[Rfam]
RNA: msiK RNA
Organism: Actinomyces bowdenii
RNA sequence: CAUCGGCACCUUUCACCACGGAUCGUCCGGCACGUACCUGCCGGUGAAGGGAAGGGCCU
Numbered sequence: 001c002a003u004c005g006g007c008a009c010c011u012u013u014c015a016c017c018a019c020g021g022a023u024c025g026u027c028c029g030g031c032a033c034g035u036a037c038c039u040g041c042c043g044g045u046g047a048a049g050g051g052a053a054g055g056g057c058c059u
Base pairs, nucleotide, nucleotide: 009051010050011049012048013047014046015045027044028043029042030041031040032039